[Rfam]
RNA sequence: UAUAAUUAGGUCUGUGGUUGAAAGUCCAUGCCAGUCGCAGGCAAAGGGACCCACGUAAGGCAGCUUAAAAGCAGGGCUGCUGAGCAUGGUGCGGCUUAGGAGUAAGACCUGCCAGGAGAGUGGCGAGGCGGUUGAUGCGCAAGCUCGUCAGGGCUUCUGAGAGGAGUAGUAGUGACGGCGAACCCGGAGCAAACCUUCCAGCAGGCGAGUGUGGGGGCAAAGACCAGGUCAGCUAAAUAUA
Numbered sequence: 001u002a003u004a005a006u007u008a009g010g011u012c013u014g015u016g017g018u019u020g021a022a023a024g025u026c027c028a029u030g031c032c033a034g035u036c037g038c039a040g041g042c043a044a045a046g047g048g049a050c051c052c053a054c055g056u057a058a059g060g061c062a063g064c065u066u067a068a069a070a071g072c073a074g075g076g077c078u079g080c081u082g083a084g085c086a087u088g089g090u091g092c093g094g095c096u097u098a099g100g101a102g103u104a105a106g107a108c109c110u111g112c113c114a115g116g117a118g119a120g121u122g123g124c125g126a127g128g129c130g131g132u133u134g135a136u137g138c139g140c141a142a143g144c145u146c147g148u149c150a151g152g153g154c155u156u157c158u159g160a161g162a163g164g165a166g167u168a169g170u171a172g173u174g175a176c177g178g179c180g181a182a183c184c185c186g187g188a189g190c191a192a193a194c195c196u197u198c199c200a201g202c203a204g205g206c207g208a209g210u211g212u213g214g215g216g217g218c219a220a221a222g223a224c225c226a227g228g229u230c231a232g233c234u235a236a237a238u239a240u241a
Base pairs, nucleotide, nucleotide: 001241002240003239004238006236007235008234009233012232013231014230015226016225017224018223019222028212029211030210031041033096034095035094036093037092038091039090050089051088058081059080061079062078063077064076065075087219108205109204110203111202112201113159114158115157116156117155163198164197165196166195172190173189176186177185178184
The record is a 241-nucleotide RNA sequence from Thermotalea metallivorans, which matches "raiA RNA" in Rfam. The family's consensus secondary structure is taken from published work. It is annotated as a riboswitch.